[Rfam]
RNA: Small Cajal body specific RNA 6
Organism: Amphiprion percula
RNA sequence: GGUCAGUGAUGUGAUGUAAAAAGGUCUGAACCUUAGGCUCCGCCCCCUGCCGCCCUCUGGCUCCCAGCAGCCCCUGCUCCUUCUCCCAUCAUGCUCGAGUGCUGCAGCGGGGGUCCAGCAGCUGCUGACAGACAGAAUGUGACAUCAUGCUGGGAGUCUGUGCCGAGAUCCGACAGGCUCCCCGUGAUGACAGACAUCCAACAGAACCAAUCAGAACGCAGCGCCAGGCUGAGGGGGCGGGGCCUGAGUGGUGAUCUCACUGUUCUACUGAGACC
Numbered sequence: 001g002g003u004c005a006g007u008g009a010u011g012u013g014a015u016g017u018a019a020a021a022a023g024g025u026c027u028g029a030a031c032c033u034u035a036g037g038c039u040c041c042g043c044c045c046c047c048u049g050c051c052g053c054c055c056u057c058u059g060g061c062u063c064c065c066a067g068c069a070g071c072c073c074c075u076g077c078u079c080c081u082u083c084u085c086c087c088a089u090c091a092u093g094c095u096c097g098a099g100u101g102c103u104g105c106a107g108c109g110g111g112g113g114u115c116c117a118g119c120a121g122c123u124g125c126u127g128a129c130a131g132a133c134a135g136a137a138u139g140u141g142a143c144a145u146c147a148u149g150c151u152g153g154g155a156g157u158c159u160g161u162g163c164c165g166a167g168a169u170c171c172g173a174c175a176g177g178c179u180c181c182c183c184g185u186g187a188u189g190a191c192a193g194a195c196a197u198c199c200a201a202c203a204g205a206a207c208c209a210a211u212c213a214g215a216a217c218g219c220a221g222c223g224c225c226a227g228g229c230u231g232a233g234g235g236g237g238c239g240g241g242g243c244c245u246g247a248g249u250g251g252u253g254a255u256c257u258c259a260c261u262g263u264u265c266u267a268c269u270g271a272g273a274c275c
Base pairs, nucleotide, nucleotide: 001275002274003273004272036257037256039254040253043235044234045233047231049229050228061221062220064218065127066126067125068124069123070122071121085113086112087111089109092106093105094104135199137197138196139195140194152182153181154180155179156178157177158176159175160174161173